[Rfam]
RNA sequence: AAAGUCAACUUAAGGUUUAUUACUGUCCAAUGAGUGCACAGUGAGGGCGCUACGGCUAACACCUACACAAGACACUACCAUCAACUAGAGCUUUACUUUACUUUGGUGCAAUUUUUGGAAAA
Numbered sequence: 001a002a003a004g005u006c007a008a009c010u011u012a013a014g015g016u017u018u019a020u021u022a023c024u025g026u027c028c029a030a031u032g033a034g035u036g037c038a039c040a041g042u043g044a045g046g047g048c049g050c051u052a053c054g055g056c057u058a059a060c061a062c063c064u065a066c067a068c069a070a071g072a073c074a075c076u077a078c079c080a081u082c083a084a085c086u087a088g089a090g091c092u093u094u095a096c097u098u099u100a101c102u103u104u105g106g107u108g109c110a111a112u113u114u115u116u117g118g119a120a121a122a
Stems, first nucleotide, its partner, number of pairs: 001011002015056003022051001024049005034042002079108005086100005
RNA: U4atac minor spliceosomal RNA
Organism: Piliocolobus tephrosceles